[Rfam]
Shown here is a 110-nucleotide sequence from Brachypteracias leptosomus, a member of the family "Small nucleolar RNA SNORD124". The match comes from Rfam's covariance-model search (45 bits). It is annotated as a C/D-box small nucleolar RNA. For this family Rfam cites "snoSeeker: an advanced computational package for screening of guide and orphan snoRNA genes in the human genome" (Yang et al., Nucleic Acids Res, 2006).
RNA sequence: UCCCUCCCUGGAAGGGGUGAUGUGUCAGCACAGAGCCCAGAUAAGGACUCUGACUCUCACAUUGAGCUGUGAUGAAACUUGCUGAGUGCUCUGACCUUCCAGGGUGUGGG
Dot-bracket structure: ........(((((((...............................................................................))))))).........